[Rfam]
RNA sequence: AAUGAUAAUGGCAGACCUUCCGAAAGAAAGGGGCGCAAAGCUAUAGGGCCUGUAAAAUGGCAGCCAGCUACCAAAA
Numbered sequence: 001a002a003u004g005a006u007a008a009u010g011g012c013a014g015a016c017c018u019u020c021c022g023a024a025a026g027a028a029a030g031g032g033g034c035g036c037a038a039a040g041c042u043a044u045a046g047g048g049c050c051u052g053u054a055a056a057a058u059g060g061c062a063g064c065c066a067g068c069u070a071c072c073a074a075a076a
Stems, first nucleotide, its partner, number of pairs: 003073002011036002016031004021026001034063001039069004046065002048061003

Shown here is a 76-nucleotide RNA sequence from Alkalibacter saccharofermentans, a member of the family "c-di-GMP-I-GGC riboswitch aptamer".
The family is grouped with related families in Rfam's "c-di-GMP_I riboswitch clan".